[Rfam]
RNA sequence: AAAAAAGGCUAGGGGUGCCCGAAAGGGCUGAGAGGCGGAAAGCUAACCCUGUAACCUGAUCUGGUUAGUACCAGCGUAGGGAAGCGGAAAAAGUGGUUU
Dot-bracket structure: .......(((((((..((((....))))......((.....))...))))....((((..((((......))))..))))..)))..............
Source information:
This 99-nucleotide RNA from Youngiibacter fragilis belongs to the Rfam family "TPP riboswitch aptamer (THI element)". A search with the family's covariance model found it, with a score of 66 bits. Rfam links the family to the GO term thiamine pyrophosphate binding.